[Rfam]
RNA sequence: GGCCCGGUGCCGCCGAAUCGCACGACGGUCACACACCGUCAGCGAAUCGGGGACCCACCUUGUUGCAAUGGGGUGAAUCCGCGGCCGCCUGCUCGACGGCGGUCAGGUAGGGCGAUCUUCCCGCCCGAACCCGUCAGCUAACCCGGUAGGCGGCGUGGGGAAGAAAG
Dot-bracket structure: ..........((((...(((......................)))((((((....((...........))(((.....((.........................))..((((.........))))...))).........)))))).))))...............

About this RNA
Shown here is a 167-nucleotide sequence from Phytohabitans flavus, a member of the family "c-di-AMP riboswitch aptamer (ydaO/yuaA leader)". The match comes from Rfam's covariance-model search (74 bits). From the family's description: This family represents a conserved RNA structure found upstream of the ydaO and yuaA genes in Bacillus subtilis and related genes in other bacteria. NCBI's taxonomy places the organism under Bacteria, Actinomycetota, Micromonosporales, Micromonosporaceae, Phytohabitans.